[Rfam]
RNA sequence: AGAGUUCUACAUCGAAGGGCUAGCGACCCACGGUGGCCCUGAGUCAUGCGUUGGCGUCCGUGAGGGCGUCGGCGAAGCGUUGACAGGGGUACGUGCAGGCUGGGCUAUUGAGCCGCGAAAUCAAGGUGUCCGGGGUGCCGACGUCGUCGAAACAGGCGGAAGGCAACAUCGCUGGCGACGCUAUGCGCGAGUCGUCAGGGGACCCCGCGCGGUCGGAGAACC
Number, nucleotide and partner (000 for none) at each position: 001a000002g000003a000004g000005u000006u000007c000008u000009a000010c035011a034012u033013c032014g031015a000016a000017g029018g028019g027020c000021u190022a000023g188024c187025g000026a000027c019028c018029c017030a000031c014032g013033g012034u011035g010036g000037c089038c088039c087040u086041g000042a000043g084044u083045c082046a081047u079048g078049c074050g073051u072052u071053g070054g069055c068056g067057u066058c065059c064060g000061u000062g000063a000064g059065g058066g057067c056068g055069u054070c053071g052072g051073c050074g049075a000076a000077g000078c048079g047080u000081u046082g045083a044084c043085a000086g040087g039088g038089g037090u000091a000092c000093g000094u000095g000096c000097a000098g000099g000100c000101u000102g000103g000104g000105c000106u000107a000108u000109u216110g214111a000112g213113c212114c211115g210116c209117g208118a000119a000120a000121u000122c000123a000124a000125g000126g000127u000128g000129u000130c000131c207132g206133g205134g204135g203136u202137g164138c163139c162140g000141a000142c158143g157144u156145c155146g000147u000148c000149g000150a000151a000152a000153c000154a000155g145156g144157c143158g142159g000160a000161a000162g139163g138164c137165a000166a000167c000168a000169u201170c200171g000172c198173u197174g196175g195176c194177g193178a192179c191180g000181c000182u000183a000184u000185g000186c000187g024188c023189g000190a021191g179192u178193c177194g176195u175196c174197a173198g172199g000200g170201g169202a136203c135204c134205c133206c132207g131208c117209g116210c115211g114212g113213u112214c110215g000216g109217a000218g000219a000220a000221c000222c000